[Rfam]
RNA sequence: GGAGUCGGCCAGACAGUCGCUGUUCGCGGUUCACCCGCGGAUGGAGGAAAGUCCGGGCUCCUCAGGGCAGGGCGCCAGGUAACGCCUGGGAGGCGCGAGCCUACGGAAAGUGCCACAGAAAAUAUACCGCCUCGUCUCCUCGCGGGACGCGGUAAGGGUGAAAUGGUGCGGUAAGAGCGCACCGCGCUUCCGGCAACGGAAGUGGCAGGGAAAACCCCGCCCGGAGCAAGACCAAAUAGGGGGGCAUUCGGGCAACCGAAACGUGCGGCCCGCACGGCUCCCGGGUAGGUCGCUUGAGACGCGUGGCGACACGCGCCCCAGAUGAAUGACUGUCCACGACAGAACCCGGCUUAUCGGCCGACUCCUUUU
Numbered sequence: 001g002g003a004g005u006c007g008g009c010c011a012g013a014c015a016g017u018c019g020c021u022g023u024u025c026g027c028g029g030u031u032c033a034c035c036c037g038c039g040g041a042u043g044g045a046g047g048a049a050a051g052u053c054c055g056g057g058c059u060c061c062u063c064a065g066g067g068c069a070g071g072g073c074g075c076c077a078g079g080u081a082a083c084g085c086c087u088g089g090g091a092g093g094c095g096c097g098a099g100c101c102u103a104c105g106g107a108a109a110g111u112g113c114c115a116c117a118g119a120a121a122a123u124a125u126a127c128c129g130c131c132u133c134g135u136c137u138c139c140u141c142g143c144g145g146g147a148c149g150c151g152g153u154a155a156g157g158g159u160g161a162a163a164u165g166g167u168g169c170g171g172u173a174a175g176a177g178c179g180c181a182c183c184g185c186g187c188u189u190c191c192g193g194c195a196a197c198g199g200a201a202g203u204g205g206c207a208g209g210g211a212a213a214a215c216c217c218c219g220c221c222c223g224g225a226g227c228a229a230g231a232c233c234a235a236a237u238a239g240g241g242g243g244g245c246a247u248u249c250g251g252g253c254a255a256c257c258g259a260a261a262c263g264u265g266c267g268g269c270c271c272g273c274a275c276g277g278c279u280c281c282c283g284g285g286u287a288g289g290u291c292g293c294u295u296g297a298g299a300c301g302c303g304u305g306g307c308g309a310c311a312c313g314c315g316c317c318c319c320a321g322a323u324g325a326a327u328g329a330c331u332g333u334c335c336a337c338g339a340c341a342g343a344a345c346c347c348g349g350c351u352u353a354u355c356g357g358c359c360g361a362c363u364c365c366u367u368u369u
Stems, first nucleotide, its partner, number of pairs: 001365010011354001012334007020044009049352003053349005058226004065271004070222005075089005090104001091102004105217002110215002113210002127157002129153003133149005165183006184206001185204008230291004240282006262276005298317001300315006
Dot-bracket structure: ((((((((((((((((((.(((((((((.......)))))))))....[[[.[[[[[((((...[[[[.((((((((((.....)))))(((((....)))).)((...((.((............(((((.(((((.......))))).)))..)).......((((((.......))))))(((((((((....)))))))).)..))...)))))))))))))...((((......((((((................(((((.]]]]))))))))))).....))))......(.((((((....)))))).)..........)))))))..........]]]]]]]].).))))))))))....
Background
A member of the RNA family "Bacterial RNase P class A" from Methylococcus sp. EFPC2, 369 nucleotides long. The family's RNA type in Rfam is ribozyme. The source organism's lineage runs through Bacteria, Pseudomonadati, Pseudomonadota, Methylococcaceae and Methylococcus. From the family's description: Ribonuclease P (RNase P) is a ubiquitous endoribonuclease, found in archaea, bacteria and eukarya as well as chloroplasts and mitochondria. The match comes from Rfam's covariance-model search (339 bits). The family's consensus secondary structure is taken from published work.